Nucleotides: 116
Base pairs, nucleotide, nucleotide: 005112006111007110008109012105013104014103015102016101017100018099019098020097022096023095024094025093026092027091028090029089030088031087032086033085034084035083
Number, partner (000 for none) and nucleotide at each position: 001000g002000u003000g004000u005112u006111a007110c008109c009000a010000u011000u012105a013104g014103u015102u016101c017100c018099c019098u020097u021000c022096a023095a024094g025093c026092a027091c028090u029089u030088c031087a032086c033085g034084u035083g036000a037000g038000g039000c040000a041000c042000c043000a044000u045000u046000c047000a048000g049000g050000u051000u052000a053000c054000u055000c056000u057000u058000c059000a060000u061000g062000u063000a064000c065000g066000a067000g068000c069000u070000g071000u072000u073000u074000u075000a076000g077000g078000u079000g080000u081000a082000a083035u084034a085033u086032g087031u088030g089029a090028a091027g092026u093025g094024u095023u096022u097020g098019g099018g100017g101016g102015g103014a104013c105012u106000c107000u108000c109008g110007g111006u112005g113000a114000u115000a116000c